[Rfam]
Source information
A member of the RNA family "Small nucleolar RNA R44/J54/Z268 family" from Spirodela intermedia, 90 nucleotides long. Taxonomically the source falls in Spirodela (Eukaryota, Magnoliopsida, Mesangiospermae, Araceae). The match comes from Rfam's covariance-model search (81 bits). Rfam links the family to the GO terms nucleolus and RNA processing. Pairs were carried over by alignment from the consensus structure, which was predicted with PFOLD.
RNA sequence: UAUGCACCUGAUGAUAAAACAGACAGGGACAUCUGCACCCUCAAAAAGGGGUUGAUGACUCGUCUUCAAUGGGAAUCUCUCUGAUGCAUU
Numbered sequence: 001u002a003u004g005c006a007c008c009u010g011a012u013g014a015u016a017a018a019a020c021a022g023a024c025a026g027g028g029a030c031a032u033c034u035g036c037a038c039c040c041u042c043a044a045a046a047a048g049g050g051g052u053u054g055a056u057g058a059c060u061c062g063u064c065u066u067c068a069a070u071g072g073g074a075a076u077c078u079c080u081c082u083g084a085u086g087c088a089u090u
Base pairs, nucleotide, nucleotide: 002089003088004087005086006085